[Rfam]
RNA: Metazoan signal recognition particle RNA
RNA sequence: GCCGGGAAUGGUGGCGCAUUCCUGUAAUCCAGCUACUUGGAGGCUUGGGUUGUUGGACGGUUUGAGGACGGGAGCUCUGCUCUCGGAUGUACUGUGUCGAUCGGGUGUCCGCACUAAGCCUGGCAUCAAUAUGGCGUUCUCGUGGGAGCAUGAGACCUCCAGGUUGACUAAGGAGGGAAGCACCGGCUCAGGGGGGAAACCCAGCAGGCAAAAUUCCCCGUGUCACGCAGUAGUGGGAUCGCACCUGUGAAUGGACGUUCGUUGGUAGCCCGUCCGAUACAACUGAACAUAGCCCUUA
Number, nucleotide and partner (000 for none) at each position: 001g044002c043003c042004g023005g022006g021007a020008a019009u018010g017011g000012u000013g000014g000015c000016g000017c010018a009019u008020u007021c006022c005023u004024g000025u000026a000027a000028u041029c040030c039031a000032g000033c000034u000035a000036c000037u000038u000039g030040g029041a028042g003043g002044c001045u000046u000047g295048g294049g293050u292051u291052g290053u289054u000055g000056g000057a000058c285059g284060g283061u282062u281063u000064g000065a000066g275067g274068a273069c272070g271071g270072g269073a000074g000075c000076u000077c268078u267079g266080c265081u264082c000083u000084c261085g260086g259087a258088u257089g256090u000091a000092c254093u253094g252095u251096g000097u249098c000099g000100a000101u000102c247103g246104g245105g244106u243107g242108u241109c237110c236111g000112c235113a234114c233115u232116a231117a000118g228119c227120c000121u225122g224123g223124c222125a221126u220127c166128a165129a164130u163131a000132u161133g160134g159135c000136g157137u000138u155139c154140u153141c152142g151143u150144g149145g000146g000147a000148g000149c144150a143151u142152g141153a140154g139155a138156c000157c136158u000159c134160c133161a132162g000163g130164u129165u128166g127167a000168c172169u000170a000171a000172g168173g000174a000175g218176g217177g216178a215179a214180g000181c000182a000183c000184c000185g000186g209187c208188u207189c000190a000191g000192g000193g202194g201195g200196g000197a000198a000199a000200c195201c194202c193203a000204g000205c000206a000207g188208g187209c186210a000211a000212a000213a000214u179215u178216c177217c176218c175219c000220g126221u125222g124223u123224c122225a121226c000227g119228c118229a000230g000231u116232a115233g114234u113235g112236g110237g109238a000239u000240c000241g108242c107243a106244c105245c104246u103247g102248u000249g097250a000251a095252u094253g093254g092255a000256c089257g088258u087259u086260c085261g084262u000263u000264g081265g080266u079267a078268g077269c072270c071271c070272g069273u068274c067275c066276g000277a000278u000279a000280c000281a062282a061283c060284u059285g058286a000287a000288c000289a053290u052291a051292g050293c049294c048295c047296u000297u000298a000